[Rfam]
RNA: Lysine riboswitch aptamer
RNA sequence: ACCAAGGGUAGAGGCGCAUCGUCUAUCAGUAGCAAGUCGGAGGGUGAUUCCGAUGAGGGCUUGCAAAAGGAGCCGGUGCCGAAGUGAGAGAGGGUCAUCAUGCCUGCUCGCUGGGGUUGUCAUCGAAUAGAGGCAACACUGCCAUAGUAUAUAAUUACAUUAACUAUGGAGCGCUACUGUGGAG
Numbered sequence: 001a002c003c004a005a006g007g008g009u010a011g012a013g014g015c016g017c018a019u020c021g022u023c024u025a026u027c028a029g030u031a032g033c034a035a036g037u038c039g040g041a042g043g044g045u046g047a048u049u050c051c052g053a054u055g056a057g058g059g060c061u062u063g064c065a066a067a068a069g070g071a072g073c074c075g076g077u078g079c080c081g082a083a084g085u086g087a088g089a090g091a092g093g094g095u096c097a098u099c100a101u102g103c104c105u106g107c108u109c110g111c112u113g114g115g116g117u118u119g120u121c122a123u124c125g126a127a128u129a130g131a132g133g134c135a136a137c138a139c140u141g142c143c144a145u146a147g148u149a150u151a152u153a154a155u156u157a158c159a160u161u162a163a164c165u166a167u168g169g170a171g172c173g174c175u176a177c178u179g180u181g182g183a184g
Base pairs, nucleotide, nucleotide: 007178008177009176010175011174016079017078018077019076020075021074023072024071032064033063034062035061036060037059038058083112084111085110086109087108088107090105092103094101113140114139116137117136118135119134120133121132123130142169143168144167145166146165147164148163